The record is a 97-nucleotide RNA sequence, which matches "PhotoRC-II RNA" in Rfam. The family's consensus secondary structure is taken from published work.
RNA sequence: UAAUCAUUUGUAACACGCCUCACCGGGACUAAACAGCGUGUCUAAAAAACAGUCUCUAAUAUCCACUCGCAAGGGUAGAGUGGAGAUACUACUACCU
Numbered sequence: 001u002a003a004u005c006a007u008u009u010g011u012a013a014c015a016c017g018c019c020u021c022a023c024c025g026g027g028a029c030u031a032a033a034c035a036g037c038g039u040g041u042c043u044a045a046a047a048a049a050c051a052g053u054c055u056c057u058a059a060u061a062u063c064c065a066c067u068c069g070c071a072a073g074g075g076u077a078g079a080g081u082g083g084a085g086a087u088a089c090u091a092c093u094a095c096c097u
Base pairs, nucleotide, nucleotide: 014040015039016038017037018036025056026055027054028053029052062084063083064082065081066080067079068078